[Rfam]
RNA sequence: UCCUCUCCACAGCCGCGCUUCUUUGCUUACAUACAGAUCAAGUUGAGCUUUUUAGCGCUUCUUUAUCAUUGAAUCGCAAAUGAGAAAAUCGGAGUAAAUCUCAAACCUAUCCUUUCCAAGCUUUCGAGCUCGGUAAAGGAACCUGCCCGCGAGGGCCCAGCGUGAUAUUUUUCACGUUCGCAGCUGGCAUCAGAAACGCAGGGCUGCGGCUCCUUCAGGAGCUCGUAGGUUUCCCUAUGGGAGAGCCGUUGCUGAGAUGGUGGCCUCGACUCUGAGGUAACACUUUAGUGCAAUGCGUGGCGUGCUUUGUGGACUUUUGGACACAAGUACAAUUCGAUUCCGAUUAUCGUGUUGAGGA
Numbered sequence: 001u002c003c004u005c006u007c008c009a010c011a012g013c014c015g016c017g018c019u020u021c022u023u024u025g026c027u028u029a030c031a032u033a034c035a036g037a038u039c040a041a042g043u044u045g046a047g048c049u050u051u052u053u054a055g056c057g058c059u060u061c062u063u064u065a066u067c068a069u070u071g072a073a074u075c076g077c078a079a080a081u082g083a084g085a086a087a088a089u090c091g092g093a094g095u096a097a098a099u100c101u102c103a104a105a106c107c108u109a110u111c112c113u114u115u116c117c118a119a120g121c122u123u124u125c126g127a128g129c130u131c132g133g134u135a136a137a138g139g140a141a142c143c144u145g146c147c148c149g150c151g152a153g154g155g156c157c158c159a160g161c162g163u164g165a166u167a168u169u170u171u172u173c174a175c176g177u178u179c180g181c182a183g184c185u186g187g188c189a190u191c192a193g194a195a196a197c198g199c200a201g202g203g204c205u206g207c208g209g210c211u212c213c214u215u216c217a218g219g220a221g222c223u224c225g226u227a228g229g230u231u232u233c234c235c236u237a238u239g240g241g242a243g244a245g246c247c248g249u250u251g252c253u254g255a256g257a258u259g260g261u262g263g264c265c266u267c268g269a270c271u272c273u274g275a276g277g278u279a280a281c282a283c284u285u286u287a288g289u290g291c292a293a294u295g296c297g298u299g300g301c302g303u304g305c306u307u308u309g310u311g312g313a314c315u316u317u318u319g320g321a322c323a324c325a326a327g328u329a330c331a332a333u334u335c336g337a338u339u340c341c342g343a344u345u346a347u348c349g350u351g352u353u354g355a356g357g358a
Stems, first nucleotide, its partner, number of pairs: 001358004008351003014300001019295001022080004036067003040063002090342005098258004145156004159178007183250001186247003201236003302330006
Nuclear RNase P: a 358-nucleotide RNA sequence from Gomphillus americanus. A reference for the family is Frank et al. (2000), "Phylogenetic-comparative analysis of the eukaryal ribonuclease P RNA", RNA. The organism belongs to Gomphillus, within Eukaryota. Its Rfam clan is "RNaseP clan".